[Rfam]
RNA sequence: AAUAAAUGAAGUUCGAUUAAAAUCGCCACAUCCUGUGGCAACAUCGAACUGACUUGCGUCCUGCAAG
Numbered sequence: 001a002a003u004a005a006a007u008g009a010a011g012u013u014c015g016a017u018u019a020a021a022a023u024c025g026c027c028a029c030a031u032c033c034u035g036u037g038g039c040a041a042c043a044u045c046g047a048a049c050u051g052a053c054u055u056g057c058g059u060c061c062u063g064c065a066a067g
Stems, first nucleotide, its partner, number of pairs: 011049007025039005053067005

A member of the RNA family "Bacillaceae-1 RNA" from Salibacterium salarium, 67 nucleotides long. Pairs were carried over by alignment from the consensus structure, which is taken from published work. The source organism's lineage runs through Bacteria, Bacillati, Bacillota, Bacillaceae and Salibacterium.